A member of the RNA family "Mammalian CPEB3 ribozyme" from Alligator mississippiensis, 77 nucleotides long. Taxonomically the source falls in Alligator (Eukaryota, Gnathostomata, Dipnotetrapodomorpha, Archosauria).
[Rfam]
RNA sequence: AGUUGCAAGCUCAGGGUCAUAGGAAAGGCAUUCACAGUGUGGCCCUGUUAGAUUCCAACUAAUCUUCAAGUUCAGCU
Numbered sequence: 001a002g003u004u005g006c007a008a009g010c011u012c013a014g015g016g017u018c019a020u021a022g023g024a025a026a027g028g029c030a031u032u033c034a035c036a037g038u039g040u041g042g043c044c045c046u047g048u049u050a051g052a053u054u055c056c057a058a059c060u061a062a063u064c065u066u067c068a069a070g071u072u073c074a075g076c077u
Stems, first nucleotide, its partner, number of pairs: 014045005021077002026072002028040003050065005

A search with the family's covariance model found it, with a score of 37 bits. About the family: The mammalian CPEB3 ribozyme is a self cleaving RNA located in the second intron of the CPEB3 gene which belongs to a family of genes regulating messenger RNA polyadenylation.